[Rfam]
RNA sequence: ACUCUCUCACUCUGCAUAGUCACACUAGGUUUCACCCGUGUGACUUUCGUACCGGGAGAGAGAGAAAAAGAGUUCCUCAAGUACCUUGGAUUGGCCUCGCAGUGGCCUCUCUUGCUUAGAGGAGCACCACAGAU
Numbered sequence: 001a002c003u004c005u006c007u008c009a010c011u012c013u014g015c016a017u018a019g020u021c022a023c024a025c026u027a028g029g030u031u032u033c034a035c036c037c038g039u040g041u042g043a044c045u046u047u048c049g050u051a052c053c054g055g056g057a058g059a060g061a062g063a064g065a066a067a068a069a070g071a072g073u074u075c076c077u078c079a080a081g082u083a084c085c086u087u088g089g090a091u092u093g094g095c096c097u098c099g100c101a102g103u104g105g106c107c108u109c110u111c112u113u114g115c116u117u118a119g120a121g122g123a124g125c126a127c128c129a130c131a132g133a134u
Base pairs, nucleotide, nucleotide: 002064003063004062005061006060007059008058010056011055012054014052018045019044020043021042022041023040024039025038073124074123075122076121077120079117080116081115088112089111090110093107094106095105096104

The record is a 134-nucleotide RNA from Microtus ochrogaster, which matches "Small nucleolar RNA SNORA64/SNORA10 family" in Rfam. This family belongs to the H/ACA class of small nucleolar RNAs (snoRNAs) which act as guides in the the modification of uridines to pseudouridines.